Background:
Rfam assigns this 125-nucleotide RNA sequence from Brassica oleracea to the family "MIR9563 microRNA precursor family". Rfam links the family to the GO terms miRNA-mediated post-transcriptional gene silencing and RISC complex.
[Rfam]
RNA sequence: GGAAUAUAAGAACUCGUCUCUUAACUUUUAACUAAAAAAAUUAAAAACUGGUUUUUAAAACUCUUAUUUAAGAACCAAUUCUUAAUUUUUUUAGUUAAAAAUUCAGAAACGGGUUCUUAUAUUCC
Numbered sequence: 001g002g003a004a005u006a007u008a009a010g011a012a013c014u015c016g017u018c019u020c021u022u023a024a025c026u027u028u029u030a031a032c033u034a035a036a037a038a039a040a041u042u043a044a045a046a047a048c049u050g051g052u053u054u055u056u057a058a059a060a061c062u063c064u065u066a067u068u069u070a071a072g073a074a075c076c077a078a079u080u081c082u083u084a085a086u087u088u089u090u091u092u093a094g095u096u097a098a099a100a101a102u103u104c105a106g107a108a109a110c111g112g113g114u115u116c117u118u119a120u121a122u123u124c125c
Stems, first nucleotide, its partner, number of pairs: 001125017019107003023103002026100014041085004046080002

The organism belongs to Brassica oleracea, within Eukaryota.